[Rfam]
A member of the RNA family "Small nucleolar RNA SNORA25" from Jaculus jaculus, 129 nucleotides long. The organism belongs to Jaculus, within Eukaryota. Rfam 15.1 lists 1,129 matches to the family in 449 species. Pairs were carried over by alignment from the consensus structure, which was predicted with RNAfold. It scores 100 bits against the family's covariance model. ACA25 is a member of the H/ACA class of snoRNA that guide the sites of modification of uridines to pseudouridines. Rfam classes the family as an H/ACA-box small nucleolar RNA.
RNA sequence: AGGUCAUUUCAAAGAGAGUUUGUUGGGCCCCGAAACCAAGAUCUCUGAACUCCUUGACCAAAGACUGCAGCUCUCCACAGGACAACAGAGCUUUUCAGUAGUGCUGUGUUUUCCUGAGGAGAAACAUAA
Numbered sequence: 001a002g003g004u005c006a007u008u009u010c011a012a013a014g015a016g017a018g019u020u021u022g023u024u025g026g027g028c029c030c031c032g033a034a035a036c037c038a039a040g041a042u043c044u045c046u047g048a049a050c051u052c053c054u055u056g057a058c059c060a061a062a063g064a065c066u067g068c069a070g071c072u073c074u075c076c077a078c079a080g081g082a083c084a085a086c087a088g089a090g091c092u093u094u095u096c097a098g099u100a101g102u103g104c105u106g107u108g109u110u111u112u113c114c115u116g117a118g119g120a121g122a123a124a125c126a127u128a129a
Base pairs, nucleotide, nucleotide: 002059003058004057005056006055015046016045017044018043020041021040023039026037027036072122073121074120075119076118079115080114081113082112087107089105090104091103093101094100
Dot-bracket structure: .(((((........((((.((.(..((........)).))).))))........)))))............(((((..((((....(.(((.((.....)).))).)....))))..))))).......